A member of the RNA family "Potassium channel RNA editing signal", 114 nucleotides long. The family's RNA type in Rfam is cis-regulatory element. About the family: This family represents a group of sequences related to the human potassium channel Kv1.1 hairpin element which directs the efficient modification of an adenosine to inosine by an adenosine deaminase acting on RNA (ADAR). The ADAR modification causes an isoleucine/valine recoding event which lies in the ion-conducting pore of the potassium channel. It is thought that this editing event targets the process of fast inactivation and allows a more rapid recovery from inactivation at negative potentials. Rfam 15.1 lists 14,095 matches to the family in 1,000 species. Its family is annotated with adenosine to inosine editing in the Gene Ontology.
[Rfam]
RNA sequence: CUGGGGUAUGGAGACAUGGUGCCUAAGACAAUUGCUGGGAAGAUAUUUGGCUCCAUCUGCUCCCUAAGCGGCGUCCUGGUCAUUGCUCUGCCAGUCCCCGUCAUAGUCUCCCCA
Numbered sequence: 001c002u003g004g005g006g007u008a009u010g011g012a013g014a015c016a017u018g019g020u021g022c023c024u025a026a027g028a029c030a031a032u033u034g035c036u037g038g039g040a041a042g043a044u045a046u047u048u049g050g051c052u053c054c055a056u057c058u059g060c061u062c063c064c065u066a067a068g069c070g071g072c073g074u075c076c077u078g079g080u081c082a083u084u085g086c087u088c089u090g091c092c093a094g095u096c097c098c099c100g101u102c103a104u105a106g107u108c109u110c111c112c113c114a
Base pairs, nucleotide, nucleotide: 004111005110008107009106011104013102014101015100018097019096021095022094037077038076039075040074049063050062